[Rfam]
RNA: Bacterial large subunit ribosomal RNA, nucleotides 9 to 608
Organism: Glycomyces terrestris
RNA sequence: UGUGUAGGGCGCAUGGUGGAUGCCUUGGUGCCGGAUGACCGAUGAAGGACGUGUGAGGCUGCGAUAUGCCUGGGGGAGUUGCCAACUGGACUGUGAUCCCAGGGUUUCCGAAUGGGGUAACCUGGCCGGCUUGAUGGCCGGUCGCGCCUGCCUGAAUGUAUAGGGUGGGUGGUGGUGUGGCGGGGAAGUGAAACAUCUCAGUACCUGCUGUGGAGAAAACAAGAGUGAUUCCGUCAGUAGCGGCGAGCGAAAGCGGAGGAGGCUAAACCUGGUUCGUGUGAUAGCCGGCAGGCGUUGCGGGUCGGGGGUUGUGGGACGUUUCCGUUAGUUUCUGCCGAAACUAGGUUCAUGCAUCAGCAGCUAGUCGAACGGUGUGGGAAAGCCGACCGGAGUGGGUGAGAGUCCCGUAGGUGAAGGUUGUUGGUGGUGUUCGGGGAGCGCACCCGAGUAGCGCGGGUUUCGUGGAGGCUCGUGUGAAUCUGGCAGGACCGUCUGCUAAGCCUAAAGAGGUCCGGUGACCGAUAGUGGAGAGUACCGUGAGGGAAUGGUGAAAAGUACCCCGGGAGGGGAGUGAAAGAGUGCCUGAAACCAUGUGCCUGU
Numbered sequence: 001u002g003u004g005u006a007g008g009g010c011g012c013a014u015g016g017u018g019g020a021u022g023c024c025u026u027g028g029u030g031c032c033g034g035a036u037g038a039c040c041g042a043u044g045a046a047g048g049a050c051g052u053g054u055g056a057g058g059c060u061g062c063g064a065u066a067u068g069c070c071u072g073g074g075g076g077a078g079u080u081g082c083c084a085a086c087u088g089g090a091c092u093g094u095g096a097u098c099c100c101a102g103g104g105u106u107u108c109c110g111a112a113u114g115g116g117g118u119a120a121c122c123u124g125g126c127c128g129g130c131u132u133g134a135u136g137g138c139c140g141g142u143c144g145c146g147c148c149u150g151c152c153u154g155a156a157u158g159u160a161u162a163g164g165g166u167g168g169g170u171g172g173u174g175g176u177g178u179g180g181c182g183g184g185g186a187a188g189u190g191a192a193a194c195a196u197c198u199c200a201g202u203a204c205c206u207g208c209u210g211u212g213g214a215g216a217a218a219a220c221a222a223g224a225g226u227g228a229u230u231c232c233g234u235c236a237g238u239a240g241c242g243g244c245g246a247g248c249g250a251a252a253g254c255g256g257a258g259g260a261g262g263c264u265a266a267a268c269c270u271g272g273u274u275c276g277u278g279u280g281a282u283a284g285c286c287g288g289c290a291g292g293c294g295u296u297g298c299g300g301g302u303c304g305g306g307g308g309u310u311g312u313g314g315g316a317c318g319u320u321u322c323c324g325u326u327a328g329u330u331u332c333u334g335c336c337g338a339a340a341c342u343a344g345g346u347u348c349a350u351g352c353a354u355c356a357g358c359a360g361c362u363a364g365u366c367g368a369a370c371g372g373u374g375u376g377g378g379a380a381a382g383c384c385g386a387c388c389g390g391a392g393u394g395g396g397u398g399a400g401a402g403u404c405c406c407g408u409a410g411g412u413g414a415a416g417g418u419u420g421u422u423g424g425u426g427g428u429g430u431u432c433g434g435g436g437a438g439c440g441c442a443c444c445c446g447a448g449u450a451g452c453g454c455g456g457g458u459u460u461c462g463u464g465g466a467g468g469c470u471c472g473u474g475u476g477a478a479u480c481u482g483g484c485a486g487g488a489c490c491g492u493c494u495g496c497u498a499a500g501c502c503u504a505a506a507g508a509g510g511u512c513c514g515g516u517g518a519c520c521g522a523u524a525g526u527g528g529a530g531a532g533u534a535c536c537g538u539g540a541g542g543g544a545a546u547g548g549u550g551a552a553a554a555g556u557a558c559c560c561c562g563g564g565a566g567g568g569g570a571g572u573g574a575a576a577g578a579g580u581g582c583c584u585g586a587a588a589c590c591a592u593g594u595g596c597c598u599g600u
Base pairs, nucleotide, nucleotide: 007598008597009596010595011594012593013592014591015590016589022583023548024547027520028519029517030516031515032514033513034512035511036509039175040174047109048108049107050063051062052061069103070102071101072100073099074098075097078091079090080089114123115122116121124143125142126141127140128139129138130137145171146170147169148168149167150166151165152164153163179209180208181207182206183205184204190197191196219226220225229506230257231256232255233254234253240248241247260503261502262501263500268306269305270304271303272302273301274300275299276298277297278296313445314444315443318439319438320437321436322435352426353425354424355423356422357421358420359419360418361417362416364412365411366410370385371384372383373382388392394406395405396404451475452474453473454472455471456470457469458468459467482497483496484495485494486493535542536541558569559568560567561566